[Rfam]
RNA sequence: ACAGGCACAGCCGGUUUGAGCAUUUUUACUGAAUUGCCAAACCAGUCGUGCCUGUGG
Numbered sequence: 001a002c003a004g005g006c007a008c009a010g011c012c013g014g015u016u017u018g019a020g021c022a023u024u025u026u027u028a029c030u031g032a033a034u035u036g037c038c039a040a041a042c043c044a045g046u047c048g049u050g051c052c053u054g055u056g057g
Stems, first nucleotide, its partner, number of pairs: 001055008010046002013043006020037003024033003
This 57-nucleotide RNA sequence from Homo sapiens belongs to the Rfam family "mir-6715 microRNA precursor family". The family's consensus secondary structure was predicted with RNAalifold. Rfam links the family to the GO terms miRNA-mediated post-transcriptional gene silencing and RISC complex. Lineage of the source: Eukaryota > Teleostomi > Eutheria > Euarchontoglires > Homo.